[Rfam]
RNA sequence: CGUAAGUGGAGUCCGGAAACCACAAAAAAACGGGGCAAAAUCCUGAAAUGCCUUAUGAGUAGGGACAAUU
Dot-bracket structure: .....((((..........))))..........(((....[[.......)))..........]]......
This 70-nucleotide RNA from Flavobacterium beibuense belongs to the Rfam family "DUF805 RNA". The family is grouped with related families in Rfam's "DUF805 clan".